[Rfam]
This 135-nucleotide RNA sequence from Nothoprocta ornata belongs to the Rfam family "Small nucleolar RNA SNORA33". Rfam classes the family as an H/ACA-box small nucleolar RNA. Rfam describes the family as follows. ACA33 is a member of the H/ACA class of snoRNA that guide the sites of modification of uridines to pseudouridines. Rfam links the family to the GO terms nucleolus and RNA processing. The base pairs follow the family's consensus structure, which was predicted with PFOLD.
RNA sequence: GUGCCAGUUACUUACAUCUGCUUAACCUGACAAUGUUUUGCAGAGCACAUUUUAAGAUAAUACUGGCAAAGUAAAGCCACAGUACGAGCCUUGCAGACUUCGUUGUCUUUGAGGUCCCAACAGAUGGCUACAUCU
Numbered sequence: 001g002u003g004c005c006a007g008u009u010a011c012u013u014a015c016a017u018c019u020g021c022u023u024a025a026c027c028u029g030a031c032a033a034u035g036u037u038u039u040g041c042a043g044a045g046c047a048c049a050u051u052u053u054a055a056g057a058u059a060a061u062a063c064u065g066g067c068a069a070a071g072u073a074a075a076g077c078c079a080c081a082g083u084a085c086g087a088g089c090c091u092u093g094c095a096g097a098c099u100u101c102g103u104u105g106u107c108u109u110u111g112a113g114g115u116c117c118c119a120a121c122a123g124a125u126g127g128c129u130a131c132a133u134c135u
Base pairs, nucleotide, nucleotide: 003067004066005065006064007063017044018043019042020041021040076128077127078126079125088115089114090113091112092111093110096107097106098105